[Rfam]
RNA sequence: AACCAAAUCAGGCCGAAUCCGGGUAUGCCGAAUGCCCGGUACGGGGGACGAUUUCCAUGGGGUGAAUGUCCGGCGGCGCGUAAGGAGACGCGCGAUCGGAUAAGGGAGCAUCCUCUUCCCUAACCCGUCAACUAACCUCGGAGGCACCAGGAGGGAACAA
Dot-bracket structure: ...........(((....(((((((.......)))))))..(((((..((.......))(((.....((((((......................))))))..((((.........))))...))).........)))))..)))...............
c-di-AMP riboswitch aptamer (ydaO/yuaA leader): a 160-nucleotide RNA sequence from Paenibacillus flagellatus. On this family, see Barrick et al., Proc Natl Acad Sci U S A 2004: "New RNA motifs suggest an expanded scope for riboswitches in bacterial genetic control".